[Rfam]
RNA sequence: CCAUACAUACCCUGUAGAACCGAAUGUGUGUGGAGCUGCCUCAGUCACAGAUUGGGUUCUAGGGGAGUCUAUGGG
Numbered sequence: 001c002c003a004u005a006c007a008u009a010c011c012c013u014g015u016a017g018a019a020c021c022g023a024a025u026g027u028g029u030g031u032g033g034a035g036c037u038g039c040c041u042c043a044g045u046c047a048c049a050g051a052u053u054g055g056g057u058u059c060u061a062g063g064g065g066a067g068u069c070u071a072u073g074g075g
Base pairs, nucleotide, nucleotide: 002073003072004071005070007068010065011064012063016060017059018058019057020056021055023053024052025051027049028048029047030046
Rfam assigns this 75-nucleotide RNA sequence from Oryzias latipes to the family "mir-10 microRNA precursor family". On this family, see Ambros, Cell 2001: "microRNAs: tiny regulators with great potential". The base pairs follow the family's consensus structure, which was predicted with PFOLD. The match comes from Rfam's covariance-model search (55 bits).